[Rfam]
RNA sequence: UGGUUCCAUUAGCCAUAGUAACAACGAAUCAUAGGAAGUCAGCAGAUGUCAUAGUAGCGAAGAAGUCUGGGAAACCGGAUGGAGCAAAGGAC
Numbered sequence: 001u002g003g004u005u006c007c008a009u010u011a012g013c014c015a016u017a018g019u020a021a022c023a024a025c026g027a028a029u030c031a032u033a034g035g036a037a038g039u040c041a042g043c044a045g046a047u048g049u050c051a052u053a054g055u056a057g058c059g060a061a062g063a064a065g066u067c068u069g070g071g072a073a074a075c076c077g078g079a080u081g082g083a084g085c086a087a088a089g090g091a092c
Base pairs, nucleotide, nucleotide: 001026002025004023008019009018010017011016038047039046040045048092049091050090057085058084066079067078
The family of this 92-nucleotide RNA from Clostridium sp. AM33-3 is "Group II catalytic intron D1-D4-1". Pairs were carried over by alignment from the consensus structure. It scores 45 bits against the family's covariance model. NCBI's taxonomy places the organism under Bacteria, Bacillati, Bacillota, Clostridia, Clostridium.